[Rfam]
RNA: SmY spliceosomal RNA
RNA sequence: GCGAAUUCUUUAAUUCUCGCAGAGUCUUACAUAAGACUCGGUGAAAAAUUUUUGGGAGCCUCGCUCCGCGAGGUUU
Numbered sequence: 001g002c003g004a005a006u007u008c009u010u011u012a013a014u015u016c017u018c019g020c021a022g023a024g025u026c027u028u029a030c031a032u033a034a035g036a037c038u039c040g041g042u043g044a045a046a047a048a049u050u051u052u053u054g055g056g057a058g059c060c061u062c063g064c065u066c067c068g069c070g071a072g073g074u075u076u
Stems, first nucleotide, its partner, number of pairs: 022039003026035003057075008